The family of this 112-nucleotide sequence from Bauldia litoralis is "EcpR1". The match comes from Rfam's covariance-model search (98 bits). By type it is a small RNA. A reference for the family is Wilms et al. (2012), "Deep sequencing uncovers numerous small RNAs on all four replicons of the plant pathogen Agrobacterium tumefaciens", RNA Biol. The family's consensus secondary structure was predicted with WAR. From the family's description: Perviously named SmelC291, SmrC10, or Sra33. According to its overproduction phenotype it was renamed Elongated Cell Phenotype RNA1. Induced by stress,EcpR1 negatively regulates cell cycle master regulatory genes dnaA and gcrA at post-transcriptional level by base pairing between its strongly conserved GC-rich loop and the target mRNAs. It's regulation is hfq-independent but requires RNase E to regulate dnaA.
RNA sequence: AAACCCUGCGGAGUGCUCAGGUCCGCCGCAUCUCCUGGGUCCGUGGGGUCGGCCGGUUCCAGAACGGAGUGAGUGGCCUCCUCGUACAAGCCCGUUCUGGACCGGCCACUAA
Numbered sequence: 001a002a003a004c005c006c007u008g009c010g011g012a013g014u015g016c017u018c019a020g021g022u023c024c025g026c027c028g029c030a031u032c033u034c035c036u037g038g039g040u041c042c043g044u045g046g047g048g049u050c051g052g053c054c055g056g057u058u059c060c061a062g063a064a065c066g067g068a069g070u071g072a073g074u075g076g077c078c079u080c081c082u083c084g085u086a087c088a089a090g091c092c093c094g095u096u097c098u099g100g101a102c103c104g105g106c107c108a109c110u111a112a
Stems, first nucleotide, its partner, number of pairs: 003049008016039006051107008060099002